[Rfam]
RNA: FMN riboswitch aptamer (RFN element)
Organism: Deinococcus soli
RNA sequence: GACUUCCUUCGGGGUGGGGUGGAAUUCCCUACCGGCGGUGAUGGCGUGAGCCUCAGCCCGCGAAGCCCGCGCAAAUUGCACCACGCGCAGGCCCGAUCUGGUGGGAAUCCAGAGCCGACGGUCAGAGUCCGGAUGAGAGAAGGAGGAA
Numbered sequence: 001g002a003c004u005u006c007c008u009u010c011g012g013g014g015u016g017g018g019g020u021g022g023a024a025u026u027c028c029c030u031a032c033c034g035g036c037g038g039u040g041a042u043g044g045c046g047u048g049a050g051c052c053u054c055a056g057c058c059c060g061c062g063a064a065g066c067c068c069g070c071g072c073a074a075a076u077u078g079c080a081c082c083a084c085g086c087g088c089a090g091g092c093c094c095g096a097u098c099u100g101g102u103g104g105g106a107a108u109c110c111a112g113a114g115c116c117g118a119c120g121g122u123c124a125g126a127g128u129c130c131g132g133a134u135g136a137g138a139g140a141a142g143g144a145g146g147a148a
Base pairs, nucleotide, nucleotide: 003146004145005144006143007142008141009140010139017029018028019027031128032127033117034116035061036060037059038058056115057114065092066091097113098112099111100110101109119131120130121129